[Rfam]
About this RNA:
The family of this 223-nucleotide RNA is "IS605-orfB-I RNA". The base pairs follow the family's consensus structure, which is taken from published work. It is one of the family's seed sequences.
Nucleotides: 223
Stems, first nucleotide, its partner, number of pairs: 001052005007045002010040006017034005022028001072127008086116002088113005097106002133150005139220006145171001152165005176213010
Number, partner (000 for none) and nucleotide at each position: 001052g002051u003050c004049a005048u006000u007045a008044a009000u010040a011039g012038a013037u014036u015035u016000a017034u018033u019032a020031a021030c022028g023000c024000a025000a026000g027000a028022c029000a030021g031020u032019u033018g034017a035015g036014a037013a038012u039011c040010u041000c042000c043000c044008u045007u046000u047000u048005g049004u050003g051002a052001c053000a054000a055000u056000u057000a058000a059000a060000a061000a062000u063000u064000a065000u066000u067000u068000a069000g070000a071000a072127g073126c074125a075124u076123u077122g078121u079120c080000a081000a082000c083000a084000a085000u086116c087115a088113g089112c090111g091110u092109u093000g094000c095000g096000u097106g098105g099000c100000a101000u102000u103000a104000g105098u106097c107000g108000a109092a110091a111090c112089g113088u114000u115087u116086g117000u118000g119000a120079g121078a122077u123076g124075a125074u126073g127072u128000g129000g130000a131000a132000u133150a134149g135148g136147u137146u138000a139220a140219u141218c142217g143216u144215a145171a146137g147136a148135c149134c150133u151000u152165a153164g154163u155162u156161u157000g158000u159000a160000a161156a162155a163154a164153c165152u166000u167000a168000a169000a170000a171145u172000u173000g174000a175000u176213c177212u178211a179210u180209u181208a182207a183206a184205u185204g186000u187000u188000a189000g190000u191000u192000u193000c194000u195000g196000a197000a198000u199000u200000u201000u202000c203000g204185u205184a206183u207182u208181u209180g210179a211178u212177a213176g214000u215144u216143a217142c218141g219140g220139u221000a222000a223000u